[Rfam]
RNA: Small nucleolar RNA SNORD116
Organism: Elaeis guineensis
RNA sequence: UUGUCCAGGAUCCGCUCCAUCAAAACUAUCAUUGCAUAGAUGAACAAAAUGAUAGAGAAAUUGGUUCUCUUUUCCAGGUUGAACUAAGGGAA
Numbered sequence: 001u002u003g004u005c006c007a008g009g010a011u012c013c014g015c016u017c018c019a020u021c022a023a024a025a026c027u028a029u030c031a032u033u034g035c036a037u038a039g040a041u042g043a044a045c046a047a048a049a050u051g052a053u054a055g056a057g058a059a060a061u062u063g064g065u066u067c068u069c070u071u072u073u074c075c076a077g078g079u080u081g082a083a084c085u086a087a088g089g090g091a092a
Stems, first nucleotide, its partner, number of pairs: 001092002004089002026055005032047003